[Rfam]
Small nucleolar RNA SNORD46: a 108-nucleotide RNA sequence from Labeo rohita. Gene Ontology terms of the family: RNA processing and nucleolus. The family is grouped with related families in Rfam's "SNORD46 clan". Rfam's curators write: U40 is a C/D box small nucleolar RNA, also known as snoZ153 in plants. The human sequence has also been annotated in the sequence databases as U46. Lineage of the source: Eukaryota > Metazoa > Teleostei > Cypriniphysae > Labeo.
RNA sequence: AGUGUGGAUGAUGAAAACCCGUCCUUAGGUUGGUCUUUUUUUUAGCCUUUUUGGUUAAAGCCUUUGACCUUCCCGUGUUAGGAUUCGUCAUAGUUACACUGACACAUU
Numbered sequence: 001a002g003u004g005u006g007g008a009u010g011a012u013g014a015a016a017a018c019c020c021g022u023c024c025u026u027a028g029g030u031u032g033g034u035c036u037u038u039u040u041u042u043u044a045g046c047c048u049u050u051u052u053g054g055u056u057a058a059a060g061c062c063u064u065u066g067a068c069c070u071u072c073c074c075g076u077g078u079u080a081g082g083a084u085u086c087g088u089c090a091u092a093g094u095u096a097c098a099c100u101g102a103c104a105c106a107u108u
Stems, first nucleotide, its partner, number of pairs: 001108006